Overview:
The family of this 76-nucleotide RNA sequence from Syntrophobotulus glycolicus is "c-di-GMP-I riboswitch aptamer". Rfam links the family to the GO term cyclic-di-GMP binding. The family's consensus secondary structure is taken from published work. It scores 65 bits against the family's covariance model.
RNA sequence: UAUUGACAAUGGCAAACCUGCUGAAAAGCAGCGACGCAAAGCUAAAGGGCCUGUAACAUGGCAGCCAGCUACCAAA
Numbered sequence: 001u002a003u004u005g006a007c008a009a010u011g012g013c014a015a016a017c018c019u020g021c022u023g024a025a026a027a028g029c030a031g032c033g034a035c036g037c038a039a040a041g042c043u044a045a046a047g048g049g050c051c052u053g054u055a056a057c058a059u060g061g062c063a064g065c066c067a068g069c070u071a072c073c074a075a076a
Stems, first nucleotide, its partner, number of pairs: 012037002018031005040070004047066002049062003